[Rfam]
RNA: Mason-Pfizer monkey virus packaging signal
Organism: Nannospalax galili
RNA sequence: UGGCACCCAACAUGGGGCUGGAUACUGGGGGCAUCUCGUGAGGGAGACACGGAAAAAGGAAGGAGUGCACUCGCUCAAUUUCAAGUAGUUCGGAAUUGCGCCGCGGGCGCCUGCCGUGACAGAACCGAAGGUAAGUUGUGCCGUCUGAUCAUGGGACAAGAAUUGAGCCAGCAUCAGAUUUAUGUCAAGCAAUUGAGAGAGGCUCUAAAGACACGAGGAGUAAAGAUUAGGACUGCGGAUUUAUUUCAUUUCUUUGAUUUUUUUAAAGGACAUUUGUCCCU
Numbered sequence: 001u002g003g004c005a006c007c008c009a010a011c012a013u014g015g016g017g018c019u020g021g022a023u024a025c026u027g028g029g030g031g032c033a034u035c036u037c038g039u040g041a042g043g044g045a046g047a048c049a050c051g052g053a054a055a056a057a058g059g060a061a062g063g064a065g066u067g068c069a070c071u072c073g074c075u076c077a078a079u080u081u082c083a084a085g086u087a088g089u090u091c092g093g094a095a096u097u098g099c100g101c102c103g104c105g106g107g108c109g110c111c112u113g114c115c116g117u118g119a120c121a122g123a124a125c126c127g128a129a130g131g132u133a134a135g136u137u138g139u140g141c142c143g144u145c146u147g148a149u150c151a152u153g154g155g156a157c158a159a160g161a162a163u164u165g166a167g168c169c170a171g172c173a174u175c176a177g178a179u180u181u182a183u184g185u186c187a188a189g190c191a192a193u194u195g196a197g198a199g200a201g202g203c204u205c206u207a208a209a210g211a212c213a214c215g216a217g218g219a220g221u222a223a224a225g226a227u228u229a230g231g232a233c234u235g236c237g238g239a240u241u242u243a244u245u246u247c248a249u250u251u252c253u254u255u256g257a258u259u260u261u262u263u264u265a266a267a268g269g270a271c272a273u274u275u276g277u278c279c280c281u
Base pairs, nucleotide, nucleotide: 006031007030008029012026013024014023036047037046039044085132086131090128091127096124097122102118103117104116105115106114139158140157144155145154146153147152164207165206167203168202169201214256215255216254217253218252219251220250224242225241226240227239228238266281268279269278270277271276